[Rfam]
RNA sequence: AGAGAACUGUUUUGUUGGUGAUGACCUUUUAAGUGCUCUGAUCUGACUCUUUUUCGACUUGAGGAGACUGUUGUUAUCGUGAAGUAAACCAGUCAUGCAACUGGAAAUGGAUCAUUACUUUGACUCCUCUUCUGGCUUAUCCAGGUCGAACGCUUAGGUCACACGGCAAAAUGGUUCUAUA
Number, nucleotide and partner (000 for none) at each position: 001a000002g000003a178004g177005a176006a175007c174008u173009g172010u171011u170012u169013u168014g167015u166016u000017g000018g164019u163020g000021a000022u000023g000024a000025c000026c000027u000028u000029u000030u000031a000032a000033g000034u000035g153036c152037u150038c000039u148040g147041a146042u145043c144044u143045g000046a000047c000048u000049c000050u000051u000052u000053u000054u000055c000056g000057a000058c000059u000060u000061g129062a128063g127064g000065a125066g124067a000068c122069u000070g120071u000072u000073g118074u117075u000076a115077u114078c000079g112080u000081g000082a000083a000084g108085u107086a000087a000088a000089c104090c103091a102092g101093u100094c000095a000096u000097g000098c000099a000100a093101c092102u091103g090104g089105a000106a000107a085108u084109g000110g000111a000112u079113c000114a077115u076116u000117a074118c073119u000120u070121u000122g068123a000124c066125u065126c000127c063128u062129c061130u000131u000132c000133u000134g000135g000136c000137u000138u000139a000140u000141c000142c000143a044144g043145g042146u041147c040148g039149a000150a037151c000152g036153c035154u000155u000156a000157g000158g000159u000160c000161a000162c000163a019164c018165g000166g015167c014168a013169a012170a011171a010172u009173g008174g007175u006176u005177c004178u003179a000180u000181a000
A member of the RNA family "6S / SsrS RNA" from Prochlorococcus marinus, 181 nucleotides long. A reference for the family is Wassarman and Storz (2000), "6S RNA regulates E. coli RNA polymerase activity", Cell. Taxonomically the source falls in Prochlorococcus marinus subsp. marinus (Bacteria, Cyanophyceae, Synechococcales, Prochlorococcus marinus).